[Rfam]
RNA sequence: GCCAUUGAGGACCUUCAGGACAAGAUUCUUGGUGCCUUCAUUGAGAACUCCAGGACUGUCCUGCAGAUCGACAAU
Numbered sequence: 001g002c003c004a005u006u007g008a009g010g011a012c013c014u015u016c017a018g019g020a021c022a023a024g025a026u027u028c029u030u031g032g033u034g035c036c037u038u039c040a041u042u043g044a045g046a047a048c049u050c051c052a053g054g055a056c057u058g059u060c061c062u063g064c065a066g067a068u069c070g071a072c073a074a075u
Stems, first nucleotide, its partner, number of pairs: 010069002013066002016063007027055006034048001